[Rfam]
Description
Makes More Granules Regulator RNA (mmgR): a 76-nucleotide RNA from Chenggangzhangella methanolivorans. The match comes from Rfam's covariance-model search (71 bits). Pairs were carried over by alignment from the consensus structure. NCBI's taxonomy places the organism under Bacteria, Pseudomonadati, Alphaproteobacteria, Methylopilaceae, Chenggangzhangella. SuhB later renamed mmgR (makes more granules regulator) was a putative non-coding RNA found multiple times in the Agrobacterium tumefaciens genome and related alpha-proteobacteria. Other non-coding RNAs uncovered in the same analysis include: speF, ybhL, metA, and serC.Several studies inSinorhizobium meliloti showed that suhB element is indeed a non-coding RNA:firstly it was detected on Northern blot and called Sm8RNA, secondly in an RNAseq study referred to as SmelC689.The mutant phenotype's (strain lacking the small RNA) cytoplasm contains higher content of polyhydroxybutyrate (PBH)storage granules than wild type strain. The sRNA is required to limit the PBH intracellular accumulation when the nitrogen-fixing Sinorhizobium meliloti is under condition of surplus carbon in relation to nitrogen. It has been renamed to mmgR. Further study confirmed that mmgR fine-tunes the regulation of PBH storage.Northern blot confirmed the expression of the sRNA in other rhizobia species. Rfam 15.1 lists 1,791 matches to the family in 918 species. The literature on the family includes a 2016 paper in Mol Phylogenet Evol by Lagares et al., "Phylogenetic distribution and evolutionary pattern of an alpha-proteobacterial small RNA gene that controls polyhydroxybutyrate accumulation in Sinorhizobium meliloti". Clan: suhB sRNA clan.
RNA sequence: CGUUGCUGCCCUCUCGGGCGUUUCCUCCCUAGACUUGGGCCGCUCGAUUUUCGGGCGGCCCUUUUUUCUUGCCCGG
Numbered sequence: 001c002g003u004u005g006c007u008g009c010c011c012u013c014u015c016g017g018g019c020g021u022u023u024c025c026u027c028c029c030u031a032g033a034c035u036u037g038g039g040c041c042g043c044u045c046g047a048u049u050u051u052c053g054g055g056c057g058g059c060c061c062u063u064u065u066u067u068c069u070u071g072c073c074c075g076g
Base pairs, nucleotide, nucleotide: 008019009018010017011016037061038060039059040058041057042056043055044054045053
Dot-bracket structure: .......((((....)))).................(((((((((.......)))))))))...............